The family of this 87-nucleotide sequence from Paenibacillus ginsengarvi is "c-di-GMP-I riboswitch aptamer". Its family is annotated with cyclic-di-GMP binding in the Gene Ontology. The source organism's lineage runs through Bacteria, Bacillota, Bacilli, Caryophanales and Paenibacillus. The family's consensus secondary structure is taken from published work.
Nucleotides: 087
Stems, first nucleotide, its partner, number of pairs: 012037002017032006040081004045077003048072003055066004
Number, partner (000 for none) and nucleotide at each position: 001000a002000a003000c004000c005000a006000u007000a008000c009000c010000u011000g012037g013036c014000a015000a016000a017032c018031u019030u020029g021028c022027c023000g024000a025000a026000a027022g028021g029020c030019a031018g032017g033000g034000a035000c036013g037012c038000a039000a040081a041080g042079c043078c044000a045077c046076a047075g048072g049071u050070c051000u052000a053000a054000g055066g056065c057064u058063c059000g060000g061000u062000g063058g064057g065056g066055c067000u068000a069000u070050g071049a072048c073000a074000g075047c076046u077045g078043g079042g080041u081040u082000g083000c084000u085000g086000a087000a